[Rfam]
Nucleotides: 168
Base pairs, nucleotide, nucleotide: 026042027041028040044083045082046081047080048079049078050077051076052075053074061073062072063071064070065069087168088167089166090165
Number, partner (000 for none) and nucleotide at each position: 001000u002000a003000u004000c005000g006000g007000u008000u009000c010000u011000u012000u013000g014000g015000g016000g017000a018000g019000u020000a021000g022000c023000c024000u025000g026042c027041u028040u029000u030000c031000g032000u033000u034000a035000u036000g037000c038000g039000a040028a041027a042026g043000a044083g045082u046081u047080c048079g049078u050077g051076u052075c053074a054000a055000c056000a057000u058000a059000c060000u061073u062072g063071g064070c065069a066000a067000a068000a069065u070064g071063c072062c073061a074053u075052g076051g077050u078049g079048c080047g081046a082045g083044c084000a085000c086000c087168u088167c089166u090165c091000g092000g093000u094000u095000g096000g097000c098000g099000a100000g101000a102000c103000c104000a105000u106000c107000g108000a109000u110000g111000u112000a113000u114000c115000u116000a117000u118000a119000c120000u121000g122000c123000a124000a125000g126000u127000c128000g129000g130000g131000g132000g133000u134000a135000u136000g137000g138000a139000u140000a141000u142000g143000u144000c145000g146000u147000g148000g149000a150000c151000u152000c153000g154000a155000u156000a157000c158000c159000c160000g161000a162000c163000c164000u165090g166089a167088g168087a